[Rfam]
RNA sequence: AGUAUCAGGUCAUGAAACCUUAAAUAACCCGAGGACACAUUCUCUUUUUCUGUGUUAAAGUAUCAGGUGAUAAUCUUAUCCUGUGAAUGAGAAGUCUUUAAUUUCUGAUGAUACU
Numbered sequence: 001a002g003u004a005u006c007a008g009g010u011c012a013u014g015a016a017a018c019c020u021u022a023a024a025u026a027a028c029c030c031g032a033g034g035a036c037a038c039a040u041u042c043u044c045u046u047u048u049u050c051u052g053u054g055u056u057a058a059a060g061u062a063u064c065a066g067g068u069g070a071u072a073a074u075c076u077u078a079u080c081c082u083g084u085g086a087a088u089g090a091g092a093a094g095u096c097u098u099u100a101a102u103u104u105c106u107g108a109u110g111a112u113a114c115u
Stems, first nucleotide, its partner, number of pairs: 001115007043070001
This 115-nucleotide RNA sequence from Triticum aestivum belongs to the Rfam family "Small nucleolar RNA snoR31/Z110/Z27". The family's consensus secondary structure was predicted with PFOLD. Rfam describes the family as follows. This family contains several related snoRNAs including R31, Z27 and Z110. A reference for the family is Chen et al. (2003), "The high diversity of snoRNAs in plants: identification and comparative study of 120 snoRNA genes from Oryza sativa", Nucleic Acids Res. The source organism's lineage runs through Eukaryota, Viridiplantae, Tracheophyta, commelinids and Triticum. It is annotated as a C/D-box small nucleolar RNA.